Rfam assigns this 80-nucleotide sequence from Eptesicus fuscus to the family "mir-9186 microRNA precursor family". Lineage of the source: Eukaryota > Craniata > Teleostomi > Euteleostomi > Eptesicus. The base pairs follow the family's consensus structure, which was predicted with RNAalifold.
RNA sequence: UAGGGGGAGGUUGGCGGUAUCACUGGUACUGUGGUAAUGGCUGCCAGCAGUACCAGACAUGCCGCCCCUCUCCCCCUACA
Numbered sequence: 001u002a003g004g005g006g007g008a009g010g011u012u013g014g015c016g017g018u019a020u021c022a023c024u025g026g027u028a029c030u031g032u033g034g035u036a037a038u039g040g041c042u043g044c045c046a047g048c049a050g051u052a053c054c055a056g057a058c059a060u061g062c063c064g065c066c067c068c069u070c071u072c073c074c075c076c077u078a079c080a
Stems, first nucleotide, its partner, number of pairs: 001078005007072004013066008023056009